The record is a 238-nucleotide RNA from Senegalimassilia anaerobia, which matches "raiA RNA" in Rfam. Rfam classes the family as a riboswitch. Rfam's curators put it in the seed alignment. Lineage of the source: Bacteria > Coriobacteriia > Coriobacteriales > Senegalimassilia > Senegalimassilia anaerobia.

[Rfam]
RNA sequence: UUCUUUCGAGUCUGUAGUUGCGGGCUUUCCACGAAGGCCCUAGUCCAUGGCAGAUGCGGUCGAAAGGAUCCACGUAAGUCCCGCGGCGCGUCCGCGAAGGCGAGCACGGCGUAUCCUAGAGGUAAGACGCACCCUCCGUUUAUACGAGCGGCAUACCGUCGCGACGGGGGAGAGGGUGGCGCGAAAGCCAAGCCCCGGUGCGCGAGUGUGGGGUCGAAAACUAGGUCAGUCGGAAGAA
Numbered sequence: 001u002u003c004u005u006u007c008g009a010g011u012c013u014g015u016a017g018u019u020g021c022g023g024g025c026u027u028u029c030c031a032c033g034a035a036g037g038c039c040c041u042a043g044u045c046c047a048u049g050g051c052a053g054a055u056g057c058g059g060u061c062g063a064a065a066g067g068a069u070c071c072a073c074g075u076a077a078g079u080c081c082c083g084c085g086g087c088g089c090g091u092c093c094g095c096g097a098a099g100g101c102g103a104g105c106a107c108g109g110c111g112u113a114u115c116c117u118a119g120a121g122g123u124a125a126g127a128c129g130c131a132c133c134c135u136c137c138g139u140u141u142a143u144a145c146g147a148g149c150g151g152c153a154u155a156c157c158g159u160c161g162c163g164a165c166g167g168g169g170g171a172g173a174g175g176g177u178g179g180c181g182c183g184a185a186a187g188c189c190a191a192g193c194c195c196c197g198g199u200g201c202g203c204g205a206g207u208g209u210g211g212g213g214u215c216g217a218a219a220a221c222u223a224g225g226u227c228a229g230u231c232g233g234a235a236g237a238a
Base pairs, nucleotide, nucleotide: 001238002237003236004235005234006233007232008231009230012229013228014227015223016222017221018220019219047209048208049207050060053115054114055113056112057111058110069109070108079099081096107216128202129201130200131199132198133170134169135168136167137166138165139164140163174195175194176193181188182187